[Rfam]
Nucleotides: 065
Base pairs, nucleotide, nucleotide: 002017003016004015006014007013008012027043028042029041030040031039032038033037
Number, partner (000 for none) and nucleotide at each position: 001000u002017g003016c004015c005000a006014c007013c008012u009000u010000c011000g012008g013007g014006g015004g016003g017002c018000u019000a020000c021000a022000a023000c024000a025000g026000c027043g028042g029041c030040g031039g032038g033037u034000c035000u036000g037033a038032c039031c040030u041029g042028c043027u044000g045000c046000a047000a048000g049000a050000a051000a052000a053000c054000g055000g056000a057000a058000g059000a060000c061000a062000g063000a064000a065000a